[Rfam]
The family of this 96-nucleotide sequence from Massilia sp. WF1 is "Glycine riboswitch aptamer". The match comes from Rfam's covariance-model search (54 bits). NCBI's taxonomy places the organism under Bacteria, Betaproteobacteria, Burkholderiales, Oxalobacteraceae, Massilia. From the family's description: This family represents the bacterial glycine riboswitch.

RNA sequence: CGGACCAACUCUGGAGAGCGGCCCCAGGCGGGCCCACCGAAGGGGCAGGCGGAUUCAAGCCGCUAUCUCUCAGGUAUCGAGGACAGAGGGGUGCAG
Number, nucleotide and partner (000 for none) at each position: 001c000002g000003g000004a000005c000006c091007a000008a000009c088010u087011c086012u085013g084014g000015a000016g000017a000018g000019c000020g034021g033022c032023c031024c000025c000026a000027g000028g000029c000030g000031g023032g022033c021034c020035c000036a075037c074038c073039g071040a070041a000042g000043g069044g068045g067046c000047a000048g000049g063050c062051g061052g060053a000054u000055u000056c000057a000058a000059g000060c052061c051062g050063c049064u000065a000066u000067c045068u044069c043070u040071c039072a000073g038074g037075u036076a000077u000078c000079g000080a000081g000082g000083a000084c013085a012086g011087a010088g009089g000090g000091g006092u000093g000094c000095a000096g000